[Rfam]
RNA sequence: ACAACAAAAAACCUGCUGAAAACAAUCAGCAGGUUCCUUCUAUUGUCAACAGUUAGACAGAAGGAAAAGGGAGAGGAGAAACCGGAGAAAAGGCAUAUGGGGAAUUAUGCUUUCUCCGUGA
Numbered sequence: 001a002c003a004a005c006a007a008a009a010a011a012c013c014u015g016c017u018g019a020a021a022a023c024a025a026u027c028a029g030c031a032g033g034u035u036c037c038u039u040c041u042a043u044u045g046u047c048a049a050c051a052g053u054u055a056g057a058c059a060g061a062a063g064g065a066a067a068a069g070g071g072a073g074a075g076g077a078g079a080a081a082c083c084g085g086a087g088a089a090a091a092g093g094c095a096u097a098u099g100g101g102g103a104a105u106u107a108u109g110c111u112u113u114c115u116c117c118g119u120g121a
Base pairs, nucleotide, nucleotide: 011034012033013032014031015030016029017028018027019026035071036070037069038068039067044059045058046057047056049054083118084117085116086115089113090112091111093110094109095108096107097106